[Rfam]
RNA sequence: GGCCACGUGGCGCAACUGAAUAGCGCACUUGAUUACGGCUCAAGAGGUUGCAGGUUUGAAUCCUGCCGUGGUCA
Numbered sequence: 001g002g003c004c005a006c007g008u009g010g011c012g013c014a015a016c017u018g019a020a021u022a023g024c025g026c027a028c029u030u031g032a033u034u035a036c037g038g039c040u041c042a043a044g045a046g047g048u049u050g051c052a053g054g055u056u057u058g059a060a061u062c063c064u065g066c067c068g069u070g071g072u073c074a
Base pairs, nucleotide, nucleotide: 001073002072003071004070005069006068007067010026011025012024013023028044029043030042031041032040050066051065052064053063054062

Rfam assigns this 74-nucleotide sequence from Hyunsoonleella jejuensis to the family "tRNA".
Rfam classes the family as a transfer RNA.
The base pairs follow the family's consensus structure, which is taken from published work.